[Rfam]
RNA sequence: UCUUGAUAAUACUGUACGGGUAAUCCUUGCUACCUGCGAGACGGCUGAAGAGGACCUUAAUUGGUCCUAGAACGGCUUGAGGUAGAGGGGUUUUAGUCGGUAGGUCCGAGGACUUCUUCCUCGGGAAUCCGACACUACCCAGUCGUACGGACGGCUGGGUGACUUUUUAAGAUUUCCCCUCUUCCACGAAA
Numbered sequence: 001u002c003u004u005g006a007u008a009a010u011a012c013u014g015u016a017c018g019g020g021u022a023a024u025c026c027u028u029g030c031u032a033c034c035u036g037c038g039a040g041a042c043g044g045c046u047g048a049a050g051a052g053g054a055c056c057u058u059a060a061u062u063g064g065u066c067c068u069a070g071a072a073c074g075g076c077u078u079g080a081g082g083u084a085g086a087g088g089g090g091u092u093u094u095a096g097u098c099g100g101u102a103g104g105u106c107c108g109a110g111g112a113c114u115u116c117u118u119c120c121u122c123g124g125g126a127a128u129c130c131g132a133c134a135c136u137a138c139c140c141a142g143u144c145g146u147a148c149g150g151a152c153g154g155c156u157g158g159g160u161g162a163c164u165u166u167u168u169a170a171g172a173u174u175u176c177c178c179c180u181c182u183u184c185c186a187c188g189a190a191a
Stems, first nucleotide, its partner, number of pairs: 033053003061190002064187002081185002084182002087178003096133005105125008135161001137160005

R2 RNA element: a 191-nucleotide RNA from Agrilus planipennis. The literature on the family includes a 2004 paper in RNA by Ruschak et al., "Secondary structure models of the 3' untranslated regions of diverse R2 RNAs". Taxonomically the source falls in Agrilus (Eukaryota, Eumetazoa, Bilateria, Altocrustacea). Its family is annotated with regulation of reverse transcription in the Gene Ontology. This family represents the 3' UTR region of the R2 retrotransposable element. This family is known to interact with the R2-encoded reverse transcriptase in a reaction known as target primed reverse transcription (TPRT). The base pairs follow the family's consensus structure, which is taken from published work.